Rfam assigns this 79-nucleotide RNA sequence from Nasonia vitripennis to the family "bantam microRNA precursor family". Pairs were carried over by alignment from the consensus structure, which was predicted with RNAalifold. Gene Ontology terms of the family: miRNA-mediated post-transcriptional gene silencing and RISC complex. Rfam's curators put it in the seed alignment. The literature on the family includes a 2007 paper in Genome Biol by Weaver et al., "Computational and transcriptional evidence for microRNAs in the honey bee genome". The family is grouped with related families in Rfam's "mir-81 clan".
RNA sequence: AUAUAGACGAAACUGGUUUUCACAAUGAUUUGACAGAUGUAUUUGAUUCUGAGAUCAUUGUGAAAGCUGAUUUUGUUCC
Numbered sequence: 001a002u003a004u005a006g007a008c009g010a011a012a013c014u015g016g017u018u019u020u021c022a023c024a025a026u027g028a029u030u031u032g033a034c035a036g037a038u039g040u041a042u043u044u045g046a047u048u049c050u051g052a053g054a055u056c057a058u059u060g061u062g063a064a065a066g067c068u069g070a071u072u073u074u075g076u077u078c079c
Base pairs, nucleotide, nucleotide: 007076008075009074010073011072012071014069015068016067017066018065019064020063021062022061023060026057027056028055029054030053031052